[Rfam]
RNA sequence: GGAGUUUGAGGACGGAACGGGCAGCCGUCGCCCUUGUUAGGAGAUGUGGGAGUGUCGCCCCGCCAAAUUCU
Numbered sequence: 001g002g003a004g005u006u007u008g009a010g011g012a013c014g015g016a017a018c019g020g021g022c023a024g025c026c027g028u029c030g031c032c033c034u035u036g037u038u039a040g041g042a043g044a045u046g047u048g049g050g051a052g053u054g055u056c057g058c059c060c061c062g063c064c065a066a067a068u069u070c071u
Stems, first nucleotide, its partner, number of pairs: 001071008011029005020056004031041001046063005
About this RNA:
skipping-rope RNA: a 71-nucleotide RNA. The family's RNA type in Rfam is small RNA. It is one of the family's seed sequences.